[Rfam]
RNA: MIR7502 microRNA precursor family
Organism: Gossypium schwendimanii
RNA sequence: AAUUAAAAAUUUCAUCAUUUAUAUUAUUAAAAGUUAAUGUGAAUGACAGAAUAACGAAACAGUGAUAUAUGACAUGCAUUGUAUACUUCAUGCUGACGUACAGGAACUAAUUUUUAAUAGUAGGAAUGGAUGAAUUUUUUAACA
Numbered sequence: 001a002a003u004u005a006a007a008a009a010u011u012u013c014a015u016c017a018u019u020u021a022u023a024u025u026a027u028u029a030a031a032a033g034u035u036a037a038u039g040u041g042a043a044u045g046a047c048a049g050a051a052u053a054a055c056g057a058a059a060c061a062g063u064g065a066u067a068u069a070u071g072a073c074a075u076g077c078a079u080u081g082u083a084u085a086c087u088u089c090a091u092g093c094u095g096a097c098g099u100a101c102a103g104g105a106a107c108u109a110a111u112u113u114u115u116a117a118u119a120g121u122a123g124g125a126a127u128g129g130a131u132g133a134a135u136u137u138u139u140u141a142a143c144a
Stems, first nucleotide, its partner, number of pairs: 003142007011134006017127004022122004027117006